[Rfam]
RNA sequence: UCCAUCGCGAGGUGGAAUCUGAAGGAAGCAGUAGGCAAACUCUUGGCCUGACGAACAGAAACUAUAUACAAGGCCAGAAAUGUUGGAUAAGGUUGCUAUACAAACCGAAGUCCCAAACUGUACGGGAACAUUAUGGUAAAUAUAGCAGGCAGAUGAGAGGAAAGUUAUCGUU
Number, nucleotide and partner (000 for none) at each position: 001u016002c015003c014004a013005u012006c011007g000008c000009g000010a000011g006012g005013u004014g003015g002016a001017a000018u000019c000020u000021g000022a000023a000024g000025g000026a000027a000028g172029c000030a000031g169032u000033a000034g000035g165036c164037a000038a000039a000040c159041u158042c157043u156044u155045g154046g150047c149048c148049u147050g146051a000052c000053g000054a000055a000056c000057a000058g000059a000060a000061a000062c145063u144064a143065u142066a141067u140068a000069c000070a000071a000072g000073g137074c136075c135076a000077g000078a000079a132080a131081u130082g129083u128084u000085g113086g112087a111088u110089a000090a000091g106092g105093u104094u103095g000096c000097u000098a000099u000100a000101c000102a000103a094104a093105c092106c091107g000108a000109a000110g088111u087112c086113c085114c000115a000116a000117a000118c000119u000120g000121u000122a000123c000124g000125g000126g000127a000128a083129c082130a081131u080132u079133a000134u000135g075136g074137u073138a000139a000140a067141u066142a065143u064144a063145g062146c050147a049148g048149g047150c046151a000152g000153a000154u045155g044156a043157g042158a041159g040160g000161a000162a000163a000164g036165u035166u000167a000168u000169c031170g000171u000172u028